[Rfam]
RNA sequence: GAUUAACAACUACGUACAGUUCAAGAGCAAACACCGUAUUGAACCAGUAUGUUUGUUGGUG
Numbered sequence: 001g002a003u004u005a006a007c008a009a010c011u012a013c014g015u016a017c018a019g020u021u022c023a024a025g026a027g028c029a030a031a032c033a034c035c036g037u038a039u040u041g042a043a044c045c046a047g048u049a050u051g052u053u054u055g056u057u058g059g060u061g
Stems, first nucleotide, its partner, number of pairs: 013051005019044006028036001
Rfam assigns this 61-nucleotide sequence from Enterovirus coxsackiepol to the family "Enterovirus cis-acting replication element". The family's RNA type in Rfam is cis-regulatory element. The first step in the replication of the plus-stranded poliovirus RNA is the synthesis of a complementary minus strand. This process is initiated by the covalent attachment of UMP to the terminal protein VPg, yielding VPgpU and VPgpUpU. A small RNA hairpin in the coding region of protein 2C as the site in PV1(M) RNA that is used as the primary template for the in vitro uridylylation. The literature on the family includes a 2000 paper in J Virol by Paul et al., "Identification of an RNA hairpin in poliovirus RNA that serves as the primary template in the in vitro uridylylation of VPg". Rfam links the family to the GO term RNA replication. The sequence is in the family's curated seed alignment.